[Rfam]
RNA sequence: GACUUACAUUCAGUGGCGAGGUUAACCGAAUAGGGAAGCCGAAGAGAAAUCGAGUCCGAAUAGGGCGAACAGUCGCUGGGUGUAGACCCGAAACCAGGUGAUCUAUCCAUGGCCAGGAUGAAGGUGCCGUAACAGGUACUGGAGGUCCGAACCGACUAAUGUUGCAAAAUUAGCGGAUGAGCUGUGGAUAGGGGUGAAAGGCUAAACAAACCUGGAAAUAGCUGGUU
Numbered sequence: 001g002a003c004u005u006a007c008a009u010u011c012a013g014u015g016g017c018g019a020g021g022u023u024a025a026c027c028g029a030a031u032a033g034g035g036a037a038g039c040c041g042a043a044g045a046g047a048a049a050u051c052g053a054g055u056c057c058g059a060a061u062a063g064g065g066c067g068a069a070c071a072g073u074c075g076c077u078g079g080g081u082g083u084a085g086a087c088c089c090g091a092a093a094c095c096a097g098g099u100g101a102u103c104u105a106u107c108c109a110u111g112g113c114c115a116g117g118a119u120g121a122a123g124g125u126g127c128c129g130u131a132a133c134a135g136g137u138a139c140u141g142g143a144g145g146u147c148c149g150a151a152c153c154g155a156c157u158a159a160u161g162u163u164g165c166a167a168a169a170u171u172a173g174c175g176g177a178u179g180a181g182c183u184g185u186g187g188a189u190a191g192g193g194g195u196g197a198a199a200g201g202c203u204a205a206a207c208a209a210a211c212c213u214g215g216a217a218a219u220a221g222c223u224g225g226u227u
Stems, first nucleotide, its partner, number of pairs: 005084013020040004026034002044051002054066004087225002090222001094215006103191011114179001116148004123140006152176003156173005193203003
RNA: Bacterial large subunit ribosomal RNA, nucleotides 576 to 802